[Rfam]
Group II catalytic intron D1-D4-3: a 165-nucleotide sequence from Betaproteobacteria bacterium MOLA814. On this family, see Bonen and Vogel, Trends Genet 2001: "The ins and outs of group II introns". A search with the family's covariance model found it, with a score of 114 bits. Taxonomically the source falls in Betaproteobacteria (Bacteria, Pseudomonadati, Pseudomonadota). Pairs were carried over by alignment from the consensus structure.
Nucleotides: 165
Base pairs, nucleotide, nucleotide: 001016003014004013005012006011028165029164030163031162036157041151042150043149044148045147046145048143049142050141062140063139064138065137066136067135073132074131075130078127079126080125081124082123085111086110087109090105091104092103093102
Number, partner (000 for none) and nucleotide at each position: 001016u002000u003014a004013a005012c006011u007000g008000c009000g010000a011006a012005g013004u014003u015000u016001g017000g018000u019000c020000u021000g022000a023000a024000g025000g026000a027000a028165g029164g030163c031162g032000g033000a034000c035000g036157c037000a038000c039000a040000a041151c042150u043149g044148c045147g046145a047000u048143c049142u050141g051000a052000u053000g054000a055000a056000c057000a058000a059000a060000a061000a062140u063139a064138u065137c066136a067135u068000a069000u070000g071000a072000g073132g074131c075130g076000u077000a078127g079126g080125c081124u082123g083000g084000a085111g086110g087109c088000g089000g090105g091104u092103u093102g094000g095000c096000a097000c098000a099000a100000g101000a102093c103092g104091a105090c106000g107000a108000a109087g110086c111085c112000a113000u114000g115000u116000g117000a118000u119000c120000u121000a122000a123082c124081g125080g126079c127078c128000a129000c130075c131074g132073u133000c134000a135067a136066u137065g138064g139063u140062g141050c142049a143048g144000u145046u146000g147045c148044g149043c150042a151041g152000g153000g154000a155000c156000g157036g158000a159000u160000c161000a162031u163030g164029u165028u